[Rfam]
RNA sequence: UCCCAGUGAUGAGUUGCCAUGCUAAUACUGAGCUACCAGGCAGGGCAGCCUUGCCCUGGUUUGGGUGCCAAUGAGUUUAACAAAACUUCUCCAUGAACACCUGAGGGAC
Numbered sequence: 001u002c003c004c005a006g007u008g009a010u011g012a013g014u015u016g017c018c019a020u021g022c023u024a025a026u027a028c029u030g031a032g033c034u035a036c037c038a039g040g041c042a043g044g045g046c047a048g049c050c051u052u053g054c055c056c057u058g059g060u061u062u063g064g065g066u067g068c069c070a071a072u073g074a075g076u077u078u079a080a081c082a083a084a085a086c087u088u089c090u091c092c093a094u095g096a097a098c099a100c101c102u103g104a105g106g107g108a109c
Stems, first nucleotide, its partner, number of pairs: 001108004041058005
Description: The family of this 109-nucleotide RNA sequence from Sciurus carolinensis is "Small nucleolar RNA U6-53/MBII-28". It scores 114 bits against the family's covariance model. The family's RNA type in Rfam is C/D-box small nucleolar RNA. Gene Ontology terms of the family: RNA processing and nucleolus. A reference for the family is Huttenhofer et al. (2001), "RNomics: an experimental approach that identifies 201 candidates for novel, small, non-messenger RNAs in mouse", EMBO J. The pairing is the family consensus, mapped onto this sequence.